[Rfam]
RNA sequence: CCUCUUGAAGACGACGAACUCGUCGAGUACAUCCUCACGGGUCUGGACCAUGAGUUCAAUCCGAUCGUCUCCGCCCUCAUCGACGGAACUGAGUCAGUCUCGGUAAGCGAGUUGUAUGCUCAACUUCUUGCUUUCGAGA
Number, nucleotide and partner (000 for none) at each position: 001c000002c000003u000004c138005u137006u136007g135008a134009a000010g000011a000012c000013g000014a000015c000016g000017a000018a000019c000020u000021c000022g000023u000024c000025g000026a000027g000028u000029a000030c000031a000032u000033c000034c000035u000036c000037a000038c000039g000040g000041g000042u000043c000044u000045g000046g000047a000048c000049c000050a000051u000052g000053a000054g000055u000056u000057c000058a000059a000060u000061c000062c000063g000064a000065u000066c000067g000068u000069c000070u000071c000072c000073g000074c000075c000076c000077u000078c000079a000080u000081c000082g000083a000084c000085g000086g000087a000088a000089c107090u106091g000092a104093g000094u000095c000096a000097g000098u000099c000100u000101c000102g000103g000104u092105a000106a090107g089108c000109g000110a000111g000112u000113u000114g000115u000116a000117u000118g000119c000120u000121c000122a000123a000124c000125u000126u000127c000128u000129u000130g000131c000132u000133u000134u008135c007136g006137a005138g004139a000
Shown here is a 139-nucleotide sequence from Panicum miliaceum, a member of the family "Small nucleolar RNA Z247". For this family Rfam cites "The high diversity of snoRNAs in plants: identification and comparative study of 120 snoRNA genes from Oryza sativa" (Chen et al., Nucleic Acids Res, 2003). Rfam links the family to the GO terms nucleolus and RNA processing. The base pairs follow the family's consensus structure, which was predicted with PFOLD. The family's RNA type in Rfam is C/D-box small nucleolar RNA.